Shown here is a 76-nucleotide RNA from Drosophila melanogaster, a member of the family "mir-10 microRNA precursor family". Taxonomically the source falls in Sophophora (Eukaryota, Allotriocarida, Insecta, Diptera).

[Rfam]
RNA sequence: CCACGUCUACCCUGUAGAUCCGAAUUUGUUUUAUACUAGCUUUAAGGACAAAUUCGGUUCUAGAGAGGUUUGUGUG
Numbered sequence: 001c002c003a004c005g006u007c008u009a010c011c012c013u014g015u016a017g018a019u020c021c022g023a024a025u026u027u028g029u030u031u032u033a034u035a036c037u038a039g040c041u042u043u044a045a046g047g048a049c050a051a052a053u054u055c056g057g058u059u060c061u062a063g064a065g066a067g068g069u070u071u072g073u074g075u076g
Stems, first nucleotide, its partner, number of pairs: 002074004011065001016061003020057011